[Rfam]
RNA sequence: ACUCCGGUUGAUCCUGCCGGCGGUCACUGCUAUCGAGUUCCGACUAAGCCAUGCGAGUCACAGGCCGUAAGGUACUGGCAGACGGCUCAGUAACACGCGGAUAAUCCACCCUUAGGUGGGGCAUAUCCUUGGGAAACUGAGGUUAAUUCCCCAUAGAUCCCGAAAACUGGAAUGUUACGGGUUCUGAAAGUUACGACGCCUAAGGACGAGUCUGCGGCCUAUCAGGUUGUAGGUGGGGUAAAGGCCCACAUAGCCUAUGACGGGUACGGGCCCUGAGAGGGGUAGCCCGGAGAUGGGUUCUGAGACACGAACCCAGGCCCUACGGGGCGCAGCAGGCGCGAAACCUUCGCAAUGCGCGCAAGCGCGACGAGGGGAACUCGAGUGCCAUUGUCAUUUUUGAUGAUGGCUUUUCUUGAUCCUAAAAAGAUCAGGGAAUAAAAGCUGGGUAAGACGGGUGCCAGCCGCCGCGGUAAUACCCGCAGCUCAAGUGGUGGCCACUAUUAUUG
Numbered sequence: 001a002c003u004c005c006g007g008u009u010g011a012u013c014c015u016g017c018c019g020g021c022g023g024u025c026a027c028u029g030c031u032a033u034c035g036a037g038u039u040c041c042g043a044c045u046a047a048g049c050c051a052u053g054c055g056a057g058u059c060a061c062a063g064g065c066c067g068u069a070a071g072g073u074a075c076u077g078g079c080a081g082a083c084g085g086c087u088c089a090g091u092a093a094c095a096c097g098c099g100g101a102u103a104a105u106c107c108a109c110c111c112u113u114a115g116g117u118g119g120g121g122c123a124u125a126u127c128c129u130u131g132g133g134a135a136a137c138u139g140a141g142g143u144u145a146a147u148u149c150c151c152c153a154u155a156g157a158u159c160c161c162g163a164a165a166a167c168u169g170g171a172a173u174g175u176u177a178c179g180g181g182u183u184c185u186g187a188a189a190g191u192u193a194c195g196a197c198g199c200c201u202a203a204g205g206a207c208g209a210g211u212c213u214g215c216g217g218c219c220u221a222u223c224a225g226g227u228u229g230u231a232g233g234u235g236g237g238g239u240a241a242a243g244g245c246c247c248a249c250a251u252a253g254c255c256u257a258u259g260a261c262g263g264g265u266a267c268g269g270g271c272c273c274u275g276a277g278a279g280g281g282g283u284a285g286c287c288c289g290g291a292g293a294u295g296g297g298u299u300c301u302g303a304g305a306c307a308c309g310a311a312c313c314c315a316g317g318c319c320c321u322a323c324g325g326g327g328c329g330c331a332g333c334a335g336g337c338g339c340g341a342a343a344c345c346u347u348c349g350c351a352a353u354g355c356g357c358g359c360a361a362g363c364g365c366g367a368c369g370a371g372g373g374g375a376a377c378u379c380g381a382g383u384g385c386c387a388u389u390g391u392c393a394u395u396u397u398u399g400a401u402g403a404u405g406g407c408u409u410u411u412c413u414u415g416a417u418c419c420u421a422a423a424a425a426g427a428u429c430a431g432g433g434a435a436u437a438a439a440a441g442c443u444g445g446g447u448a449a450g451a452c453g454g455g456u457g458c459c460a461g462c463c464g465c466c467g468c469g470g471u472a473a474u475a476c477c478c479g480c481a482g483c484u485c486a487a488g489u490g491g492u493g494g495c496c497a498c499u500a501u502u503a504u505u506g
Base pairs, nucleotide, nucleotide: 004020005019006018007017008016022496023495024494025493026492027491028490029489030488031487033381034380035379036378037377038376039375040374041373042339048337049336050335052334053333054332057079058078059077062076063075065072066071086292087291088290096216097215098214099213100212101211102210105209106208110205111204112203113202114201115200116199118152119151120150121149127142128141129140130139131138132137157183159181160180161179162178164176166175167174190197191196218264219263220262225255226254227253230252231251233249234248235247236246237245267289268288269287270286271282272281273280274279294315295314296313297312298311299310317328318327319326320325345371347370348369349368353366354365355364356363357362384407385406386405387404388403389402390401391400392399393398412432413431414430415429416428417427418426440484441483442482443481444480452479453478454477455476461468462467
Shown here is a 506-nucleotide part of an RNA from Thermoplasmatales archaeon I-plasma, a member of the family "Archaeal small subunit ribosomal RNA". It is one of the family's seed sequences. Gene Ontology terms of the family: ribosome and structural constituent of ribosome. NCBI's taxonomy places the organism under Archaea, Methanobacteriati, Thermoplasmatota, Thermoplasmata, Thermoplasmatales. The family is grouped with related families in Rfam's "SSU clan".